[Rfam]
RNA sequence: GCAUAUUUCAGGUUUGUGUAUGAAUCUAAUAAAACCAUAAGCUAGAAAAAGAAGAUGGAUAGGUGGAGUUGUUUCAUGUUAGAUUCACGCACAAACUCGUAAUCUGUCU
Dot-bracket structure: (((.(((...(((((((((.((((((.(((............(.......................)..........))).)))))).)))))))))...))).)))..
The family of this 109-nucleotide sequence from Gossypium lobatum is "MIR403 microRNA precursor family". The base pairs follow the family's consensus structure, which was predicted with WAR. Taxonomically the source falls in Gossypium (Eukaryota, Spermatophyta, Pentapetalae, malvids).